[Rfam]
RNA sequence: UUUUUACAGCCUUCAAGGUCAUACUCCACCUGUGCUUGCACAAAGGUGGAGUAAUGACCUUAGAAGGCGCCCCAAAAUGAGUAAUAUCGUGAAACAACAGUUUCACGAUAUACGAAUUUUGGGGGCACAGAUUGCUUUGGCAAUCUGUGUAAAAA
Numbered sequence: 001u002u003u004u005u006a007c008a009g010c011c012u013u014c015a016a017g018g019u020c021a022u023a024c025u026c027c028a029c030c031u032g033u034g035c036u037u038g039c040a041c042a043a044a045g046g047u048g049g050a051g052u053a054a055u056g057a058c059c060u061u062a063g064a065a066g067g068c069g070c071c072c073c074a075a076a077a078u079g080a081g082u083a084a085u086a087u088c089g090u091g092a093a094a095c096a097a098c099a100g101u102u103u104c105a106c107g108a109u110a111u112a113c114g115a116a117u118u119u120u121g122g123g124g125g126c127a128c129a130g131a132u133u134g135c136u137u138u139g140g141c142a143a144u145c146u147g148u149g150u151a152a153a154a155a
Stems, first nucleotide, its partner, number of pairs: 001155007010067004016060007023052008031042004071123008081113003089106007129146007
The record is a 155-nucleotide sequence from Eubacterium ventriosum, which matches "Clostridiales-1 RNA" in Rfam. By type it is a small RNA.